Notes: The family of this 125-nucleotide sequence from Lunatimonas lonarensis is "Group II catalytic intron D1-D4-7". The match comes from Rfam's covariance-model search (54 bits). Pairs were carried over by alignment from the consensus structure. Taxonomically the source falls in Lunatimonas (Bacteria, Pseudomonadati, Bacteroidota, Cytophagia). On this family, see Chu et al., EMBO J 2001: "Control of branch-site choice by a group II intron". From the family's description: Group II introns are found in rRNA, tRNA and mRNA of organelles in fungi, plants and protists, and also in mRNA in bacteria. Rfam links the family to the GO term Group II intron splicing.

[Rfam]
RNA sequence: CCUUGUGUUCCAUCACAGGUAGCCUCAUGUAUACGUUCAUUUCUGCUAACGGGAUCGUGUGAAGCUGUCCUGGCAAUAUUCUGCGAAGAAUACCUGUUGCGCACCAACCUCAGGUGCGGGGGAGU
Numbered sequence: 001c002c003u004u005g006u007g008u009u010c011c012a013u014c015a016c017a018g019g020u021a022g023c024c025u026c027a028u029g030u031a032u033a034c035g036u037u038c039a040u041u042u043c044u045g046c047u048a049a050c051g052g053g054a055u056c057g058u059g060u061g062a063a064g065c066u067g068u069c070c071u072g073g074c075a076a077u078a079u080u081c082u083g084c085g086a087a088g089a090a091u092a093c094c095u096g097u098u099g100c101g102c103a104c105c106a107a108c109c110u111c112a113g114g115u116g117c118g119g120g121g122g123a124g125u
Base pairs, nucleotide, nucleotide: 002019003018004017005016006015007014029070031068032067033066034061035060036059038057041054042053043052044051045050077092078091079090080089081088082087100118101117102116103115104114105113
Dot-bracket structure: .((((((......)))))).........(.((((((.(..(((((....)))))..).)))....))).)......((((((....)))))).......((((((.......)))))).......